Overview
This 86-nucleotide RNA from Medicago truncatula belongs to the Rfam family "MIR2617 microRNA precursor family". The base pairs follow the family's consensus structure, which was predicted with RNAalifold. A search with the family's covariance model found it, with a score of 50 bits. The source organism's lineage runs through Eukaryota, Mesangiospermae, eudicotyledons, Papilionoideae and Medicago.
RNA sequence: AAGCAGUGUGACAUGCCCGUCGUUUGUUGAACUCUGAUUAUUUUAUUUUUUAUUAAUUGUUUGGGGUAACGGGGUGUUACACUUUA
Numbered sequence: 001a002a003g004c005a006g007u008g009u010g011a012c013a014u015g016c017c018c019g020u021c022g023u024u025u026g027u028u029g030a031a032c033u034c035u036g037a038u039u040a041u042u043u044u045a046u047u048u049u050u051u052a053u054u055a056a057u058u059g060u061u062u063g064g065g066g067u068a069a070c071g072g073g074g075u076g077u078u079a080c081a082c083u084u085u086a
Stems, first nucleotide, its partner, number of pairs: 003085001005083010016073005024068001